The record is a 41-nucleotide RNA from Pseudonocardia autotrophica, which matches "L31-Actinobacteria ribosomal protein leader" in Rfam. Pairs were carried over by alignment from the consensus structure, which is taken from published work. A search with the family's covariance model found it, with a score of 48 bits.
RNA sequence: CCGGCUCCGGUUCACCUUGCGACAGCAGGGACCCGGCGGCC
Numbered sequence: 001c002c003g004g005c006u007c008c009g010g011u012u013c014a015c016c017u018u019g020c021g022a023c024a025g026c027a028g029g030g031a032c033c034c035g036g037c038g039g040c041c
Base pairs, nucleotide, nucleotide: 003041004040005039007036008035009034010033015030016029017028018027019026020025